[Rfam]
RNA sequence: GGUCACAAGUUUGAGGCCACAGCAGAAGCACUCAGGAUACAGCCCUGUCAGAUUCCAACAAAUCUGAAAAUCUGCU
Numbered sequence: 001g002g003u004c005a006c007a008a009g010u011u012u013g014a015g016g017c018c019a020c021a022g023c024a025g026a027a028g029c030a031c032u033c034a035g036g037a038u039a040c041a042g043c044c045c046u047g048u049c050a051g052a053u054u055c056c057a058a059c060a061a062a063u064c065u066g067a068a069a070a071u072c073u074g075c076u
Stems, first nucleotide, its partner, number of pairs: 013045001015044003021076006028040001030038001049066006
RNA: Mammalian CPEB3 ribozyme